[Rfam]
RNA sequence: GCCGAACUGAGUUGCUUCAGUUUGUAACCUAAGCAGGGGCAAUGAAUGGAUUGGAUGCUGUUACGAAGUUCUGUGGAGUGGACUUGCCGUUAGAUUAGUGGUCUGCCCGUUUCAAGUUGAUUGUGAUCCGAUCGAAUUGGGCGUAGGCUCAGGUUGAUCGGGUUCAUAAUGGGGUGGGAACUGGAUCAGGCUGGAAUCACAGAGCAAUUACGCCCGCCCACUUUCAACGGUGGAAGGAUAACAGAUCAUUAUACGAUAGACCCACAAUAAUCCUCAGAACCGUUAGCUAUCAGACAAAUCAUUUU
Numbered sequence: 001g002c003c004g005a006a007c008u009g010a011g012u013u014g015c016u017u018c019a020g021u022u023u024g025u026a027a028c029c030u031a032a033g034c035a036g037g038g039g040c041a042a043u044g045a046a047u048g049g050a051u052u053g054g055a056u057g058c059u060g061u062u063a064c065g066a067a068g069u070u071c072u073g074u075g076g077a078g079u080g081g082a083c084u085u086g087c088c089g090u091u092a093g094a095u096u097a098g099u100g101g102u103c104u105g106c107c108c109g110u111u112u113c114a115a116g117u118u119g120a121u122u123g124u125g126a127u128c129c130g131a132u133c134g135a136a137u138u139g140g141g142c143g144u145a146g147g148c149u150c151a152g153g154u155u156g157a158u159c160g161g162g163u164u165c166a167u168a169a170u171g172g173g174g175u176g177g178g179a180a181c182u183g184g185a186u187c188a189g190g191c192u193g194g195a196a197u198c199a200c201a202g203a204g205c206a207a208u209u210a211c212g213c214c215c216g217c218c219c220a221c222u223u224u225c226a227a228c229g230g231u232g233g234a235a236g237g238a239u240a241a242c243a244g245a246u247c248a249u250u251a252u253a254c255g256a257u258a259g260a261c262c263c264a265c266a267a268u269a270a271u272c273c274u275c276a277g278a279a280c281c282g283u284u285a286g287c288u289a290u291c292a293g294a295c296a297a298a299u300c301a302u303u304u305u
Stems, first nucleotide, its partner, number of pairs: 001040003004023008028037003044304006051297003056292002060287001061285001063283003068280006075273003078265004084259003088255003091251002098249008107237002110235005116228005123221002125164011137152006165171002172219007184209003191202003
The family of this 305-nucleotide sequence from Zingiber officinale is "Plant signal recognition particle RNA".
A reference for the family is Wild et al. (2002), "Towards the structure of the mammalian signal recognition particle", Curr Opin Struct Biol.
It scores 181 bits against the family's covariance model.
Rfam classes the family as a non-coding RNA gene.